Alphaproteobacterial sRNA ar35: a 136-nucleotide sequence from Pseudohoeflea suaedae. The pairing is the family consensus, mapped onto this sequence. The family's RNA type in Rfam is small RNA. The family has 13 seed sequences and 266 matches in Rfam 15.1.

RNA sequence: GCAGCGGUCGCAGUUCUGCAGAGAACCUGCGGGCAGCGUAACGAUAUGGCGCUUCUGAUCCGUGACCACGGAUGUACUGGCACGGUAUCUUCGAGGCGUUUGGAAAGGCCGGGGCAACAGCCCGGCCUUUUUGCUU
Numbered sequence: 001g002c003a004g005c006g007g008u009c010g011c012a013g014u015u016c017u018g019c020a021g022a023g024a025a026c027c028u029g030c031g032g033g034c035a036g037c038g039u040a041a042c043g044a045u046a047u048g049g050c051g052c053u054u055c056u057g058a059u060c061c062g063u064g065a066c067c068a069c070g071g072a073u074g075u076a077c078u079g080g081c082a083c084g085g086u087a088u089c090u091u092c093g094a095g096g097c098g099u100u101u102g103g104a105a106a107g108g109c110c111g112g113g114g115c116a117a118c119a120g121c122c123c124g125g126c127c128u129u130u131u132u133g134c135u136u
Stems, first nucleotide, its partner, number of pairs: 003045001005043002007037002016032005048100007057089003060085001063082002066080003101133012114121002